c-di-GMP-I riboswitch aptamer: an 87-nucleotide sequence from Sporomusa malonica. Rfam's curators write: GEMM was predicted in a large-scale screen for bacterial structured RNA regulatory elements. The base pairs follow the family's consensus structure, which is taken from published work.
RNA sequence: AAGAAUAUUGGGCAAACUUACCGAAAGGUAAGGACGCAAAGCUAUGGGUCUAAGGACAGAAUUGUCUACGACUGCCAGGUUGCCGCU
Dot-bracket structure: ...........((...((((((....))))))...))..((((.((((((....((((....))))...)))..)))))))......